[Rfam]
RNA sequence: UUCUUAUCCAGAGAGGUAGAGGGACUGGCCCGAUGAAACCUCAGCAACAGGUCAGAUGACACUGUGCUAAUUCCUGCGGGUGGUGAACCCUGAUCGAUAAGAG
Number, nucleotide and partner (000 for none) at each position: 001u103002u102003c101004u100005u099006a098007u097008c096009c000010a000011g000012a000013g042014a041015g040016g039017u038018a000019g000020a000021g031022g030023g029024a000025c076026u000027g074028g073029c023030c022031c021032g000033a000034u000035g000036a000037a000038a017039c016040c015041u014042c013043a068044g067045c066046a065047a000048c064049a063050g000051g060052u059053c058054a000055g000056a000057u000058g053059a052060c051061a000062c000063u049064g048065u046066g045067c044068u043069a000070a000071u000072u000073c028074c027075u000076g025077c092078g091079g090080g089081u000082g000083g000084u000085g000086a000087a000088c000089c080090c079091u078092g077093a000094u000095c000096g008097a007098u006099a005100a004101g003102a002103g001
RNA: SAM riboswitch aptamer (S box leader)
Organism: Bacillus sp. MUM 116